[Rfam]
RNA sequence: UUGCGAAUAUUCUCGCUGUCUUGAUUCUUGUCUCCAAUCAAGUCAGGCUAGACAUUCGCUAGAUUAAUGCUGUGCUUAUUGUCCACAAGCCUAGUUUGUUAAGUCCUGUGGUAAUAUUUGCCAGCGACAACU
Numbered sequence: 001u002u003g004c005g006a007a008u009a010u011u012c013u014c015g016c017u018g019u020c021u022u023g024a025u026u027c028u029u030g031u032c033u034c035c036a037a038u039c040a041a042g043u044c045a046g047g048c049u050a051g052a053c054a055u056u057c058g059c060u061a062g063a064u065u066a067a068u069g070c071u072g073u074g075c076u077u078a079u080u081g082u083c084c085a086c087a088a089g090c091c092u093a094g095u096u097u098g099u100u101a102a103g104u105c106c107u108g109u110g111g112u113a114a115u116a117u118u119u120g121c122c123a124g125c126g127a128c129a130a131c132u
Base pairs, nucleotide, nucleotide: 003059004058005057016046017045018044020042021041022040023039024038025037026036069125070124071123072122074121075120085109086108087107089105091103092102094100